[Rfam]
RNA sequence: CUCCUCGAAAGCUAUUUAGGUAGCGCCUCUUGUAUCACCAUCGGGGGUAGAGCACUGUUUGGGCUAGGGGGUCAUCCCGACUUACCAACCCCAUGCAAACUCCGAAUACCGAUGAGUGCAAUCAAGGGAGACACACGGCGGGUGCUAACGUCCGUCGUGGAAAGGGAAACAACCCAGACCGUCAGCUAAGGUCCCAAAGUAAUAGUUAAGUGGGAAACGAUGUGAGAAGGCCCAGACAGCCAGGAGGUUGGCUUAGAAGCAGCCACCCUUUAAAGAAAGCGUAAUAGCUCACUGGUCGAGUCGGCUCGCGCGGAAGAUGUAACGGGGCUCAAACUAUUCACCGAAGCUACGGGUUCAACAGUUUACUGUUGAGCGGUAGAGGAGCGUUGUGUAAGCGGUUGAAGGUGUGCCGGGAGGCAUGCUGGACGUAUCACAAGUGCGAAU
Numbered sequence: 001c002u003c004c005u006c007g008a009a010a011g012c013u014a015u016u017u018a019g020g021u022a023g024c025g026c027c028u029c030u031u032g033u034a035u036c037a038c039c040a041u042c043g044g045g046g047g048u049a050g051a052g053c054a055c056u057g058u059u060u061g062g063g064c065u066a067g068g069g070g071g072u073c074a075u076c077c078c079g080a081c082u083u084a085c086c087a088a089c090c091c092c093a094u095g096c097a098a099a100c101u102c103c104g105a106a107u108a109c110c111g112a113u114g115a116g117u118g119c120a121a122u123c124a125a126g127g128g129a130g131a132c133a134c135a136c137g138g139c140g141g142g143u144g145c146u147a148a149c150g151u152c153c154g155u156c157g158u159g160g161a162a163a164g165g166g167a168a169a170c171a172a173c174c175c176a177g178a179c180c181g182u183c184a185g186c187u188a189a190g191g192u193c194c195c196a197a198a199g200u201a202a203u204a205g206u207u208a209a210g211u212g213g214g215a216a217a218c219g220a221u222g223u224g225a226g227a228a229g230g231c232c233c234a235g236a237c238a239g240c241c242a243g244g245a246g247g248u249u250g251g252c253u254u255a256g257a258a259g260c261a262g263c264c265a266c267c268c269u270u271u272a273a274a275g276a277a278a279g280c281g282u283a284a285u286a287g288c289u290c291a292c293u294g295g296u297c298g299a300g301u302c303g304g305c306u307c308g309c310g311c312g313g314a315a316g317a318u319g320u321a322a323c324g325g326g327g328c329u330c331a332a333a334c335u336a337u338u339c340a341c342c343g344a345a346g347c348u349a350c351g352g353g354u355u356c357a358a359c360a361g362u363u364u365a366c367u368g369u370u371g372a373g374c375g376g377u378a379g380a381g382g383a384g385c386g387u388u389g390u391g392u393a394a395g396c397g398g399u400u401g402a403a404g405g406u407g408u409g410c411c412g413g414g415a416g417g418c419a420u421g422c423u424g425g426a427c428g429u430a431u432c433a434c435a436a437g438u439g440c441g442a443a444u
Stems, first nucleotide, its partner, number of pairs: 001384006011024005026130001027128006035121001036118003039114006050103001051101002056097003060093004067086002069083005134159010164175003179352004184348003190342003199339001201338006218312002222309005229302003239296005245269003250264003270274001275290001279288002353374008385439001387436005395429003404423008
RNA: Bacterial large subunit ribosomal RNA, nucleotides 833 to 1276
Organism: Endozoicomonas montiporae